Overview: The family of this 188-nucleotide RNA from Dactylosporangium siamense is "M-box riboswitch aptamer (ykoK leader)". The base pairs follow the family's consensus structure. NCBI's taxonomy places the organism under Bacteria, Actinomycetota, Actinomycetes, Micromonosporales, Dactylosporangium. M-box riboswitch, also know as ykoK leader is described as a metaloregulatory RNA that sense divalent metals and function as a genetic control element of genes related to divalent metal transport in bacteria. It was first reported upstream of the B.subtilis ykoK gene and genes with related functions in other bacteria.

RNA sequence: GAGACACCUCGUUCGGUGAGGCGUCUCCACGGACACAGGCCACUGAUCCCGCCGGUCGAGAGACCCUCCGGAUCAGGACACCUCUCCCCGGGCUAAGGGGAAAGGCCAGGUGGCUGCGCAGGCAGGACCUCUCGGAAGUCUCGCGCUACGCCGUGGAGUGCCAAAGCUCUGACGAGUGGGGGUGUCAC
Numbered sequence: 001g002a003g004a005c006a007c008c009u010c011g012u013u014c015g016g017u018g019a020g021g022c023g024u025c026u027c028c029a030c031g032g033a034c035a036c037a038g039g040c041c042a043c044u045g046a047u048c049c050c051g052c053c054g055g056u057c058g059a060g061a062g063a064c065c066c067u068c069c070g071g072a073u074c075a076g077g078a079c080a081c082c083u084c085u086c087c088c089c090g091g092g093c094u095a096a097g098g099g100g101a102a103a104g105g106c107c108a109g110g111u112g113g114c115u116g117c118g119c120a121g122g123c124a125g126g127a128c129c130u131c132u133c134g135g136a137a138g139u140c141u142c143g144c145g146c147u148a149c150g151c152c153g154u155g156g157a158g159u160g161c162c163a164a165a166g167c168u169c170u171g172a173c174g175a176g177u178g179g180g181g182g183u184g185u186c187a188c
Base pairs, nucleotide, nucleotide: 005184006183007182008181009180010179011173012172013096015168016167017166020162021161022160025158026157027156028155029154030153031152032151039114040113041112042111043110045074046073047072048071049070054065055064056063057062081105082104083103087099088098089097116146117145118144